[Rfam]
RNA sequence: AUUCCCAGUUACUCACUCAACCUGGGUGUGAUGUGUGCAUCCUAUGCUCCCCCAUCACAACCUCCUUGAGUGAGCGACUGUGGUU
Numbered sequence: 001a002u003u004c005c006c007a008g009u010u011a012c013u014c015a016c017u018c019a020a021c022c023u024g025g026g027u028g029u030g031a032u033g034u035g036u037g038c039a040u041c042c043u044a045u046g047c048u049c050c051c052c053c054a055u056c057a058c059a060a061c062c063u064c065c066u067u068g069a070g071u072g073a074g075c076g077a078c079u080g081u082g083g084u085u
Base pairs, nucleotide, nucleotide: 009076012074013073014072015071016070017069018068019067020066024062025061027059028058029057030056031055032054033053

Background
A member of the RNA family "mir-67 microRNA precursor family" from Pararge aegeria, 85 nucleotides long. It scores 69 bits against the family's covariance model. The organism belongs to Pararge aegeria, within Eukaryota. A reference for the family is Cao et al. (2008), "Identification of conserved microRNAs in Bombyx mori (silkworm) and regulation of fibroin L chain production by microRNAs in heterologous system", Insect Biochem Mol Biol.